[Rfam]
RNA sequence: GGUUGUGAGGGCCAUCUGGCUGCGACAUCUGUCACCCCAUUGAUCACCAGGGUUGAUUCGGCUGAUCUGGCUGGCAAGGCGGGUGUCCCCCUCCUCCCUCAGAGAUCCAUGUGCACCCCUCCCGAAGCUGCGCGCUUGCGCUCGGUCGAAGAGGAGGACCUUCCCCCCAGAGGAGAGGACCGGUCUUCGGUCAAGGGUAUACGAGUAGCUGCGCUCCCCUGCUAGAACCUCCAAACAAGCUCUCAAGGUCCAUUUAUAGGAGAACAUAGGGCAGUCAAACUUCUAAGACUCUAGACACAGCCAAAUGAGGUGCUGCACAUGGCAGACUGAGAGAG
Numbered sequence: 001g002g003u004u005g006u007g008a009g010g011g012c013c014a015u016c017u018g019g020c021u022g023c024g025a026c027a028u029c030u031g032u033c034a035c036c037c038c039a040u041u042g043a044u045c046a047c048c049a050g051g052g053u054u055g056a057u058u059c060g061g062c063u064g065a066u067c068u069g070g071c072u073g074g075c076a077a078g079g080c081g082g083g084u085g086u087c088c089c090c091c092u093c094c095u096c097c098c099u100c101a102g103a104g105a106u107c108c109a110u111g112u113g114c115a116c117c118c119c120u121c122c123c124g125a126a127g128c129u130g131c132g133c134g135c136u137u138g139c140g141c142u143c144g145g146u147c148g149a150a151g152a153g154g155a156g157g158a159c160c161u162u163c164c165c166c167c168c169a170g171a172g173g174a175g176a177g178g179a180c181c182g183g184u185c186u187u188c189g190g191u192c193a194a195g196g197g198u199a200u201a202c203g204a205g206u207a208g209c210u211g212c213g214c215u216c217c218c219c220u221g222c223u224a225g226a227a228c229c230u231c232c233a234a235a236c237a238a239g240c241u242c243u244c245a246a247g248g249u250c251c252a253u254u255u256a257u258a259g260g261a262g263a264a265c266a267u268a269g270g271g272c273a274g275u276c277a278a279a280c281u282u283c284u285a286a287g288a289c290u291c292u293a294g295a296c297a298c299a300g301c302c303a304a305a306u307g308a309g310g311u312g313c314u315g316c317a318c319a320u321g322g323c324a325g326a327c328u329g330a331g332a333g334a335g
Stems, first nucleotide, its partner, number of pairs: 001108002006101006014092001018090002024087010035074002037070003042067004047061002116178002118173004122145004127141002148166001153164003208280001210278001214274002217271005229262004235257001237255003311329001313325004
The family of this 335-nucleotide RNA sequence from Pipistrellus kuhlii is "7SK RNA". The organism belongs to Pipistrellus, within Eukaryota. On this family, see Wassarman and Steitz, Mol Cell Biol 1991: "Structural analyses of the 7SK ribonucleoprotein (RNP), the most abundant human small RNP of unknown function". The family's RNA type in Rfam is non-coding RNA gene. The base pairs follow the family's consensus structure, which is taken from published work. 7SK was discovered as an abundant small nuclear RNA in the mid-70s but a possible function has only recently been suggested. Two independent studies have found that 7SK RNA binds the CDK9/cyclin T complex (known as elongation factor P-TEFb). P-TEFb activates transcription by phosphorylating the C-terminal domain of RNA polymerase II. This process is negatively regulated by the 7SK RNP. The secondary structure of 7SK RNA shown here was proposed by Wasserman and Steitz on the basis of chemical modification and enzymatic cleavage experiments. This family contains a number of annotated pseudogenes and 7SK derived repeats. The threshold is artificially high to minimise the pseudogene count.